The record is a 92-nucleotide RNA from Acetilactobacillus jinshanensis, which matches "SAM-III riboswitch aptamer (SMK box)" in Rfam.
A reference for the family is Fuchs et al. (2007), "S-adenosylmethionine directly inhibits binding of 30S ribosomal subunits to the SMK box translational riboswitch RNA", Proc Natl Acad Sci U S A.
It scores 60 bits against the family's covariance model.
The organism belongs to Acetilactobacillus, within Bacteria.
[Rfam]
RNA sequence: UAUCGUUAUAUGUGCAUAUUCCCGAUAGGAUUCACUUAUUGUGAAGGUGCCUUGUAACCUGUAAAACUUUUUAUAGGGGGAACUUUUAAAUU
Numbered sequence: 001u002a003u004c005g006u007u008a009u010a011u012g013u014g015c016a017u018a019u020u021c022c023c024g025a026u027a028g029g030a031u032u033c034a035c036u037u038a039u040u041g042u043g044a045a046g047g048u049g050c051c052u053u054g055u056a057a058c059c060u061g062u063a064a065a066a067c068u069u070u071u072u073a074u075a076g077g078g079g080g081a082a083c084u085u086u087u088a089a090a091u092u
Base pairs, nucleotide, nucleotide: 019082020081021080022079023078027052028051029050031045032044033043034042035041058077059076060075061074